[Rfam]
Record summary: UnaL2 LINE 3' element: a 54-nucleotide RNA sequence from Bagarius yarrelli.

RNA sequence: AAAAGAAAAAAAUGUAAGUCGCUCUGGAUAAGAGUAUCUGCUAAAUGCUGUAAA
Numbered sequence: 001a002a003a004a005g006a007a008a009a010a011a012a013u014g015u016a017a018g019u020c021g022c023u024c025u026g027g028a029u030a031a032g033a034g035u036a037u038c039u040g041c042u043a044a045a046u047g048c049u050g051u052a053a054a
Base pairs, nucleotide, nucleotide: 013043014041015040016039021035022034023033024032025031
A reference for the family is Baba et al. (2004), "Solution structure of an RNA stem-loop derived from the 3' conserved region of eel LINE UnaL2", RNA. The family's consensus secondary structure is taken from published work. The eel long interspersed element (LINE) UnaL2 and its partner short interspersed element (SINE) share a conserved 3' tail containing a stem-loop that is critical for their retrotransposition. Presumably, the first step of retrotransposition is the recognition of their 3' tails by UnaL2-encoded reverse transcriptase. The solution structure of a 17-nucleotide RNA derived from the 3' tail of UnaL2 was determined by NMR. A search with the family's covariance model found it, with a score of 59 bits.